[Rfam]
Nucleotides: 052
Base pairs, nucleotide, nucleotide: 001050002049003048004047005046006045007044008043009042010041011040012039013038014037015036017034018029019028020027
Number, partner (000 for none) and nucleotide at each position: 001050u002049g003048a004047g005046a006045u007044g008043g009042a010041a011040u012039c013038a014037g015036c016000a017034u018029u019028u020027g021000g022000a023000c024000a025000u026000g027020u028019g029018a030000u031000u032000a033000u034017g035000c036015g037014c038013u039012g040011a041010u042009u043008c044007c045006a046005u047004c048003u049002c050001a051000u052000g